[Rfam]
RNA: Eukaryotic large subunit ribosomal RNA, nucleotides 428 to 922
RNA sequence: UGGGUGGGGUCCGCGCAGACUGCCCGGAGGGUUCAACCCGGCGAGGGUCGGCCAUCCCGGGCCGGCGGAUUUUUCCACGGGGCCUCCCCCGGGGCCUCCCGUUCGAGCCCCCGUCCCCCGUCGGGUGCACUCCCUCCGCGGCGGCGCGCCGCGACCAGCUCCGGAUCGGAUUGAAGCAGCCCGGGGUGGAAGGUGGCUCCGGCCCACCCCCAGAGCAUUACAUCCCCUCGCCGCGACGCGCCGCUUUCCAGGGCCGAGGGAAAAGACUGCUGCCGCACCCGCUCCCUCUCUGUCUUCCCCAUCCCCUCAUGCUCCUCAUCCCCGGCGGGGUUUGGCGGGCGGUGGCUGACUGCGGCAGGGAGCACGGGACCCCCCUUGCUCCCAGCGUGACUGUCGACGGGGCCGGACUGUCCUCAGUGCGGCCCGACCACGUUGCGUCGCCAGGCGGGGUCGGCGGCGAUGUCGGCUCCCCACCCGACCCAUCUUGAAACACGG
Numbered sequence: 001u002g003g004g005u006g007g008g009g010u011c012c013g014c015g016c017a018g019a020c021u022g023c024c025c026g027g028a029g030g031g032u033u034c035a036a037c038c039c040g041g042c043g044a045g046g047g048u049c050g051g052c053c054a055u056c057c058c059g060g061g062c063c064g065g066c067g068g069a070u071u072u073u074u075c076c077a078c079g080g081g082g083c084c085u086c087c088c089c090c091g092g093g094g095c096c097u098c099c100c101g102u103u104c105g106a107g108c109c110c111c112c113g114u115c116c117c118c119c120g121u122c123g124g125g126u127g128c129a130c131u132c133c134c135u136c137c138g139c140g141g142c143g144g145c146g147c148g149c150c151g152c153g154a155c156c157a158g159c160u161c162c163g164g165a166u167c168g169g170a171u172u173g174a175a176g177c178a179g180c181c182c183g184g185g186g187u188g189g190a191a192g193g194u195g196g197c198u199c200c201g202g203c204c205c206a207c208c209c210c211c212a213g214a215g216c217a218u219u220a221c222a223u224c225c226c227c228u229c230g231c232c233g234c235g236a237c238g239c240g241c242c243g244c245u246u247u248c249c250a251g252g253g254c255c256g257a258g259g260g261a262a263a264a265g266a267c268u269g270c271u272g273c274c275g276c277a278c279c280c281g282c283u284c285c286c287u288c289u290c291u292g293u294c295u296u297c298c299c300c301a302u303c304c305c306c307u308c309a310u311g312c313u314c315c316u317c318a319u320c321c322c323c324g325g326c327g328g329g330g331u332u333u334g335g336c337g338g339g340c341g342g343u344g345g346c347u348g349a350c351u352g353c354g355g356c357a358g359g360g361a362g363c364a365c366g367g368g369a370c371c372c373c374c375c376u377u378g379c380u381c382c383c384a385g386c387g388u389g390a391c392u393g394u395c396g397a398c399g400g401g402g403c404c405g406g407a408c409u410g411u412c413c414u415c416a417g418u419g420c421g422g423c424c425c426g427a428c429c430a431c432g433u434u435g436c437g438u439c440g441c442c443a444g445g446c447g448g449g450g451u452c453g454g455c456g457g458c459g460a461u462g463u464c465g466g467c468u469c470c471c472c473a474c475c476c477g478a479c480c481c482a483u484c485u486u487g488a489a490a491c492a493c494g495g
Base pairs, nucleotide, nucleotide: 001477002476003475004474005473006472007471008470009469012466017343020342021341022340023339024338025337026336480495481494483492